[Rfam]
RNA sequence: AGAUUCGCUUCCAGCUUGUCAUCGGAGCAACGAACGAGUCCUACUGACUCUCUUAGCUCUGGGUAAAGUCCCCGAACCCUCUGACGGAGAGCAGUCGUACUAUAAAUGGUGCUGUUCUAUUCCCUUCCCUAUCUACAGCUGUGAAGGUUCAACCUGAGUUGUGUGAGGAAUUCAGGAAUAGGAAGAUGUUCAAUUUAUACCCAAGUAAUACAGGCAGAACUGAUGUGUUCUUACAGAAUGGGGCUUAUUGGUAGUGGAUC
Dot-bracket structure: .((((((((.(..((((((..(((((((.......(((((.....))))).....)))))))...[[[.[[[[.........((((.....).)))((((((....)))))).(((...((..((((........((((......(((...)))...))))...)))).....)).)))..............................)))))).((((......)))).........]]]]]]]....).))))))))
Numbered sequence: 001a002g003a004u005u006c007g008c009u010u011c012c013a014g015c016u017u018g019u020c021a022u023c024g025g026a027g028c029a030a031c032g033a034a035c036g037a038g039u040c041c042u043a044c045u046g047a048c049u050c051u052c053u054u055a056g057c058u059c060u061g062g063g064u065a066a067a068g069u070c071c072c073c074g075a076a077c078c079c080u081c082u083g084a085c086g087g088a089g090a091g092c093a094g095u096c097g098u099a100c101u102a103u104a105a106a107u108g109g110u111g112c113u114g115u116u117c118u119a120u121u122c123c124c125u126u127c128c129c130u131a132u133c134u135a136c137a138g139c140u141g142u143g144a145a146g147g148u149u150c151a152a153c154c155u156g157a158g159u160u161g162u163g164u165g166a167g168g169a170a171u172u173c174a175g176g177a178a179u180a181g182g183a184a185g186a187u188g189u190u191c192a193a194u195u196u197a198u199a200c201c202c203a204a205g206u207a208a209u210a211c212a213g214g215c216a217g218a219a220c221u222g223a224u225g226u227g228u229u230c231u232u233a234c235a236g237a238a239u240g241g242g243g244c245u246u247a248u249u250g251g252u253a254g255u256g257g258a259u260c
Stems, first nucleotide, its partner, number of pairs: 002260008011251001014215006022062007036050005066246003070243004083096003086092001097112006114179003120175002124168004136161004146154003217230004
Notes: The family of this 260-nucleotide sequence from Trichonephila clavipes is "RNase MRP". Rfam links the family to the GO terms rRNA processing, ribonuclease MRP complex and ribonuclease MRP activity. On this family, see Schmitt et al., FASEB J 1993: "Secondary structure of RNase MRP RNA as predicted by phylogenetic comparison". The family's consensus secondary structure is taken from published work. NCBI's taxonomy places the organism under Eukaryota, Opisthokonta, Eumetazoa, Orbiculariae, Trichonephila.